[Rfam]
This 54-nucleotide RNA from Devosia sp. Root413D1 belongs to the Rfam family "COG3860 RNA". The family's consensus secondary structure is taken from published work. The match comes from Rfam's covariance-model search (76 bits).
RNA sequence: GGGUCCGCAGUUCACCCAGGCGUCGCCGCCCCAUCCGGGGAGCUAAACCUGCCU
Numbered sequence: 001g002g003g004u005c006c007g008c009a010g011u012u013c014a015c016c017c018a019g020g021c022g023u024c025g026c027c028g029c030c031c032c033a034u035c036c037g038g039g040g041a042g043c044u045a046a047a048c049c050u051g052c053c054u
Stems, first nucleotide, its partner, number of pairs: 001017004029040004